Rfam assigns this 132-nucleotide sequence from Prolemur simus to the family "Small nucleolar RNA SNORA72". Rfam describes the family as follows. U72 is a member of the H/ACA class of snoRNAs. The snoRNA gene is located in intron 4 of the ribosomal L30 protein gene in human, mouse and chicken. The family's consensus secondary structure was predicted with PFOLD. The family's RNA type in Rfam is H/ACA-box small nucleolar RNA. Its family is annotated with RNA processing and nucleolus in the Gene Ontology.
RNA sequence: CUGCGAAUUUUCUCACUGUUCUGACUUUGUAAUAAUCAGGACAGGCUAAACAGUAGUUAUAUUAAAACCAUGCAUGUGUCCCCAGACCUAGUUCUUUCCCUAGGUUUGGUUUUAUAAAUGCUUAUGAUAACC
Number, nucleotide and partner (000 for none) at each position: 001c000002u000003g057004c056005g000006a000007a000008u000009u000010u000011u000012c000013u000014c000015a000016c044017u043018g042019u041020u040021c039022u038023g037024a036025c000026u034027u000028u000029g000030u000031a000032a000033u000034a026035a000036u024037c023038a022039g021040g020041a019042c018043a017044g016045g000046c000047u000048a000049a000050a000051c000052a000053g000054u000055a000056g004057u003058u000059a000060u000061a000062u000063u000064a000065a000066a000067a125068c000069c000070a122071u000072g121073c120074a000075u000076g000077u000078g000079u000080c000081c000082c109083c108084a107085g106086a105087c104088c103089u102090a101091g100092u000093u000094c000095u000096u000097u000098c000099c000100c091101u090102a089103g088104g087105u086106u085107u084108g083109g082110u000111u000112u000113u000114a000115u000116a000117a000118a000119u000120g073121c072122u070123u000124a000125u067126g000127a000128u000129a000130a000131c000132c000